[Rfam]
RNA: TPP riboswitch aptamer (THI element)
RNA sequence: GGUGAACGACAGGGGAGCGCCGCCGGGUCACCGGACAGCGCUGAGAGUGCGGUGAACCGCAGACCCUCGAACCUGAUCCGGUUUGCACCGGCGUAGGGAGUCGGGCUUCUCAGUCC
Numbered sequence: 001g002g003u004g005a006a007c008g009a010c011a012g013g014g015g016a017g018c019g020c021c022g023c024c025g026g027g028u029c030a031c032c033g034g035a036c037a038g039c040g041c042u043g044a045g046a047g048u049g050c051g052g053u054g055a056a057c058c059g060c061a062g063a064c065c066c067u068c069g070a071a072c073c074u075g076a077u078c079c080g081g082u083u084u085g086c087a088c089c090g091g092c093g094u095a096g097g098g099a100g101u102c103g104g105g106c107u108u109c110u111c112a113g114u115c116c
Base pairs, nucleotide, nucleotide: 007103008102009101010100011067012066013065014064017041018040019039020038048061049060050059051058052057072097073096074095075094078091079090080089081088